[Rfam]
RNA sequence: CCCACCACUGCACCUGACCAGUUCUUGUUAGCUUGGGCAAUCCAGUGGUGAGCUGAAAGUAGGCCACAGCCUUUAGGAAACAGGGCCGUCCUACAGGUGGAUGAUUCUGUGCCAGAAGCAUGGGAACAAUC
Number, nucleotide and partner (000 for none) at each position: 001c000002c000003c000004a000005c048006c047007a046008c045009u044010g043011c000012a000013c000014c000015u000016g000017a000018c035019c000020a033021g032022u030023u000024c000025u000026u000027g000028u000029u000030a022031g000032c021033u020034u000035g018036g000037g000038c000039a000040a000041u000042c000043c010044a009045g008046u007047g006048g005049u000050g000051a000052g000053c000054u000055g000056a000057a000058a000059g000060u000061a000062g000063g000064c124065c123066a000067c000068a121069g119070c118071c000072u116073u000074u000075a000076g113077g112078a000079a000080a000081c109082a108083g107084g106085g105086c000087c000088g000089u101090c100091c099092u000093a000094c000095a000096g000097g000098u000099g091100g090101a089102u000103g000104a000105u085106u084107c083108u082109g081110u000111g000112c077113c076114a000115g000116a072117a000118g070119c069120a000121u068122g000123g065124g064125a000126a000127c000128a000129a000130u000131c000
Shown here is a 131-nucleotide RNA from Nannospalax galili, a member of the family "Small nucleolar RNA SNORA65". Rfam links the family to the GO terms RNA processing and nucleolus. The organism belongs to Nannospalax, within Eukaryota. A reference for the family is Huttenhofer et al. (2001), "RNomics: an experimental approach that identifies 201 candidates for novel, small, non-messenger RNAs in mouse", EMBO J. Pairs were carried over by alignment from the consensus structure, which was predicted with RNAalifold. U65 belongs to the H/ACA class of snoRNAs which are thought to guide the sites of modification of uridines to pseudouridines.